This 382-nucleotide sequence from Piscibacillus halophilus belongs to the Rfam family "Bacterial RNase P class B".
From the family's description: Ribonuclease P (RNase P) is a ubiquitous endoribonuclease, found in archaea, bacteria and eukarya as well as chloroplasts and mitochondria.
The family's RNA type in Rfam is ribozyme.
The match comes from Rfam's covariance-model search (308 bits).
The organism belongs to Piscibacillus, within Bacteria.
[Rfam]
RNA sequence: GUGUUGAUGUAACCGCUCUGUGAUUCGCAGAGAGGAAAGUCCAUGCUCACACAGGCUGAGACGCUUGUAGUGUUCGUGCUUGACGAAACCAUAAGUCAAGGUAGUUAACUAAAGGUUAGCUAACGGCAGGGAAACAAUCUAAGUCUAUGGAUAUGAUUGGAUUACCUUUAAAGUGCCACAGUGACGAUUUUGAUUGGAAACAAUCAAAGUGGAACGAGGUAAACCCCACGAGUGAGCAACCCAAAAAAUGGUAGGGGCACUUUCUGCAGGGAAUUCAACCUAGCAGAGAGGCAAGUUAUAAGCUUGCAGAUAGAUGGUUACGACUGGAGUACGAGGUUGACCGCCGAUUGUAGUACGAAGGUACAGAACAUGGCUUACGAGA
Numbered sequence: 001g002u003g004u005u006g007a008u009g010u011a012a013c014c015g016c017u018c019u020g021u022g023a024u025u026c027g028c029a030g031a032g033a034g035g036a037a038a039g040u041c042c043a044u045g046c047u048c049a050c051a052c053a054g055g056c057u058g059a060g061a062c063g064c065u066u067g068u069a070g071u072g073u074u075c076g077u078g079c080u081u082g083a084c085g086a087a088a089c090c091a092u093a094a095g096u097c098a099a100g101g102u103a104g105u106u107a108a109c110u111a112a113a114g115g116u117u118a119g120c121u122a123a124c125g126g127c128a129g130g131g132a133a134a135c136a137a138u139c140u141a142a143g144u145c146u147a148u149g150g151a152u153a154u155g156a157u158u159g160g161a162u163u164a165c166c167u168u169u170a171a172a173g174u175g176c177c178a179c180a181g182u183g184a185c186g187a188u189u190u191u192g193a194u195u196g197g198a199a200a201c202a203a204u205c206a207a208a209g210u211g212g213a214a215c216g217a218g219g220u221a222a223a224c225c226c227c228a229c230g231a232g233u234g235a236g237c238a239a240c241c242c243a244a245a246a247a248a249u250g251g252u253a254g255g256g257g258c259a260c261u262u263u264c265u266g267c268a269g270g271g272a273a274u275u276c277a278a279c280c281u282a283g284c285a286g287a288g289a290g291g292c293a294a295g296u297u298a299u300a301a302g303c304u305u306g307c308a309g310a311u312a313g314a315u316g317g318u319u320a321c322g323a324c325u326g327g328a329g330u331a332c333g334a335g336g337u338u339g340a341c342c343g344c345c346g347a348u349u350g351u352a353g354u355a356c357g358a359a360g361g362u363a364c365a366g367a368a369c370a371u372g373g374c375u376u377a378c379g380a381g382a
Stems, first nucleotide, its partner, number of pairs: 004382002008322007016032006037376003041373005046236005051068006074231005079100006101124001102122008125226002128167003136158004143152003173224002175220003189208008240256003260290007291307006324361002329356004